[Rfam]
RNA sequence: CAACCUUUGCAGUGAUGUAAAGUUGAAAUCUAAGAAGUCAGCAGACGUCAUAGUAGCAGAAGGUUCAUGAGCCUUCGGUGAAGGAC
Numbered sequence: 001c002a003a004c005c006u007u008u009g010c011a012g013u014g015a016u017g018u019a020a021a022g023u024u025g026a027a028a029u030c031u032a033a034g035a036a037g038u039c040a041g042c043a044g045a046c047g048u049c050a051u052a053g054u055a056g057c058a059g060a061a062g063g064u065u066c067a068u069g070a071g072c073c074u075u076c077g078g079u080g081a082a083g084g085a086c
Stems, first nucleotide, its partner, number of pairs: 001025002005022007037046003047086003056079002059076003
Background
Rfam assigns this 86-nucleotide RNA sequence from Clostridium tagluense to the family "Group II catalytic intron D1-D4-1". Its family is annotated with Group II intron splicing in the Gene Ontology. From the family's description: Group II introns are found in rRNA, tRNA and mRNA of organelles in fungi, plants and protists, and also in mRNA in bacteria.